Rfam assigns this 83-nucleotide sequence from Oryza sativa to the family "Small nucleolar RNA SNORD24". It scores 70 bits against the family's covariance model. The base pairs follow the family's consensus structure, which was predicted with PFOLD. Rfam classes the family as a C/D-box small nucleolar RNA. The literature on the family includes a 1996 paper in J Mol Biol by Nicoloso et al., "Intron-encoded, antisense small nucleolar RNAs: the characterization of nine novel species points to their direct role as guides for the 2'-O-ribose methylation of rRNAs". NCBI's taxonomy places the organism under Eukaryota, Euphyllophyta, commelinids, Oryzoideae, Oryza sativa.

RNA sequence: GGCCUGUGAUGUAAGCUAAAUAUUUGCUACUCUUGAUGGGGAUUCCCAGUUGAUGAUCUCAUACCACCAAGAUCUCUGAGGCC
Numbered sequence: 001g002g003c004c005u006g007u008g009a010u011g012u013a014a015g016c017u018a019a020a021u022a023u024u025u026g027c028u029a030c031u032c033u034u035g036a037u038g039g040g041g042a043u044u045c046c047c048a049g050u051u052g053a054u055g056a057u058c059u060c061a062u063a064c065c066a067c068c069a070a071g072a073u074c075u076c077u078g079a080g081g082c083c
Stems, first nucleotide, its partner, number of pairs: 001083004